[Rfam]
RNA sequence: UUUCCCUUUGCUCGGAUGUUAGUCGAUAAUACCGCCCCGUCUAGCCACGGGACCCAGGAGUCUUCAUGUAU
Numbered sequence: 001u002u003u004c005c006c007u008u009u010g011c012u013c014g015g016a017u018g019u020u021a022g023u024c025g026a027u028a029a030u031a032c033c034g035c036c037c038c039g040u041c042u043a044g045c046c047a048c049g050g051g052a053c054c055c056a057g058g059a060g061u062c063u064u065c066a067u068g069u070a071u
Stems, first nucleotide, its partner, number of pairs: 036051005
Rfam assigns this 71-nucleotide RNA sequence from Ewingella americana to the family "PyrD leader".
It is annotated as a cis-regulatory leader.
A search with the family's covariance model found it, with a score of 48 bits.
The family's consensus secondary structure is taken from published work.